The family of this 86-nucleotide RNA from Colobus angolensis is "mir-571 microRNA precursor family". The family's consensus secondary structure was predicted with RNAalifold. It scores 78 bits against the family's covariance model.
[Rfam]
RNA sequence: AGUAAGAACAAGCUCGGUGCGCCAUUUUCUUGUCCGUAGCCAUGUCUAUGGGCCUUUGAGUUGGCCACCUGGGGUAAGGACCUCCU
Numbered sequence: 001a002g003u004a005a006g007a008a009c010a011a012g013c014u015c016g017g018u019g020c021g022c023c024a025u026u027u028u029c030u031u032g033u034c035c036g037u038a039g040c041c042a043u044g045u046c047u048a049u050g051g052g053c054c055u056u057u058g059a060g061u062u063g064g065c066c067a068c069c070u071g072g073g074g075u076a077a078g079g080a081c082c083u084c085c086u
Base pairs, nucleotide, nucleotide: 001086002085004083006081009078012075013074014072015071016070017069018067019066021065022064023063024062026060027059028058032053033052034051035050036049037048038047039046